[Rfam]
RNA sequence: GGAAACCGACCACCUACGACAUACGCACGGCAGGAGCGGGGGACCCAGGUAAGCCGCCGAUCCGGAAUGCGGAACGGCUUGGGGUGAAGUCGCCAAUUGCGGCCGGGCAUCUCCAGCCCGAACCCGACAGCUCACCUCGCAGGCGACGGAGAGGAAUU
Numbered sequence: 001g002g003a004a005a006c007c008g009a010c011c012a013c014c015u016a017c018g019a020c021a022u023a024c025g026c027a028c029g030g031c032a033g034g035a036g037c038g039g040g041g042g043a044c045c046c047a048g049g050u051a052a053g054c055c056g057c058c059g060a061u062c063c064g065g066a067a068u069g070c071g072g073a074a075c076g077g078c079u080u081g082g083g084g085u086g087a088a089g090u091c092g093c094c095a096a097u098u099g100c101g102g103c104c105g106g107g108c109a110u111c112u113c114c115a116g117c118c119c120g121a122a123c124c125c126g127a128c129a130g131c132u133c134a135c136c137u138c139g140c141a142g143g144c145g146a147c148g149g150a151g152a153g154g155a156a157u158u
Stems, first nucleotide, its partner, number of pairs: 006034002036140006046081005082125003090102004105119004
RNA: c-di-AMP riboswitch aptamer (ydaO/yuaA leader)
Organism: Streptomyces sp. SLBN-118